[Rfam]
RNA: Qrr RNA
RNA sequence: CGACCCUUAUUAAGCCGAGGGUCACCUAGCCAACUGACGUUGUUAGUGAAUACACAUUGUUCACAUCAUACAUAAGCCAAUCGCACUUAUUUUGCGGUUGGUUUUUUUUUG
Numbered sequence: 001c002g003a004c005c006c007u008u009a010u011u012a013a014g015c016c017g018a019g020g021g022u023c024a025c026c027u028a029g030c031c032a033a034c035u036g037a038c039g040u041u042g043u044u045a046g047u048g049a050a051u052a053c054a055c056a057u058u059g060u061u062c063a064c065a066u067c068a069u070a071c072a073u074a075a076g077c078c079a080a081u082c083g084c085a086c087u088u089a090u091u092u093u094g095c096g097g098u099u100g101g102u103u104u105u106u107u108u109u110u111g
Base pairs, nucleotide, nucleotide: 002023003022004021005020006019040075041074042073043072046064047063048062049061050060051059052058077101078100079099080098081097082096083095084094